Shown here is a 108-nucleotide RNA from Vigna radiata, a member of the family "Plant small nucleolar RNA R71". The base pairs follow the family's consensus structure, which was predicted with PFOLD. For this family Rfam cites "Plant snoRNAs: functional evolution and new modes of gene expression" (Brown et al., Trends Plant Sci, 2003). The family's RNA type in Rfam is C/D-box small nucleolar RNA.
RNA sequence: AUCUGAUGGUGGGGACAACUUGCACAAAGUGUCUUGAAUCUCUCCCAAUACUCAUACAAGCUCUCUCCACCAAGCUGCCUAAUCCCAGUUAUGUCUUUUCUGAUAGCU
Numbered sequence: 001a002u003c004u005g006a007u008g009g010u011g012g013g014g015a016c017a018a019c020u021u022g023c024a025c026a027a028a029g030u031g032u033c034u035u036g037a038a039u040c041u042c043u044c045c046c047a048a049u050a051c052u053c054a055u056a057c058a059a060g061c062u063c064u065c066u067c068c069a070c071c072a073a074g075c076u077g078c079c080u081a082a083u084c085c086c087a088g089u090u091a092u093g094u095c096u097u098u099u100c101u102g103a104u105a106g107c108u
Base pairs, nucleotide, nucleotide: 001108003106004105006101057074060071